[Rfam]
RNA sequence: UUGCGCAACUCCUAUCUCUAUCAGCAAUCUUCGCAAUCCUCUGUCGCGCGCGGCGGCCUACACUUUCUCCCAAGUUAAAUGACCCGGACGCAAGUCCAACUGGCCCGCCCAAUCAGGCGCACCAGAGCCGCCGACCCCACCGGGUCGCCCACGGCACCCGGGUCCGUCCUGCCCAACCAGGUGGACGAGACAGGCGGCGACACAAUCGCCAGCAGCGGACGAGAAAAUCCAAGGGGCCCACAAGGGCCCCU
Numbered sequence: 001u002u003g004c005g006c007a008a009c010u011c012c013u014a015u016c017u018c019u020a021u022c023a024g025c026a027a028u029c030u031u032c033g034c035a036a037u038c039c040u041c042u043g044u045c046g047c048g049c050g051c052g053g054c055g056g057c058c059u060a061c062a063c064u065u066u067c068u069c070c071c072a073a074g075u076u077a078a079a080u081g082a083c084c085c086g087g088a089c090g091c092a093a094g095u096c097c098a099a100c101u102g103g104c105c106c107g108c109c110c111a112a113u114c115a116g117g118c119g120c121a122c123c124a125g126a127g128c129c130g131c132c133g134a135c136c137c138c139a140c141c142g143g144g145u146c147g148c149c150c151a152c153g154g155c156a157c158c159c160g161g162g163u164c165c166g167u168c169c170u171g172c173c174c175a176a177c178c179a180g181g182u183g184g185a186c187g188a189g190a191c192a193g194g195c196g197g198c199g200a201c202a203c204a205a206u207c208g209c210c211a212g213c214a215g216c217g218g219a220c221g222a223g224a225a226a227a228u229c230c231a232a233g234g235g236g237c238c239c240a241c242a243a244g245g246g247c248c249c250c251u
Stems, first nucleotide, its partner, number of pairs: 003010001043057004076192001080190001082163004086097004100125004107118003127155004133146005165187003169184005194213001196210005232251008
RNA: Pseudomonas sRNA P24
Organism: Pseudomonas sp. GV071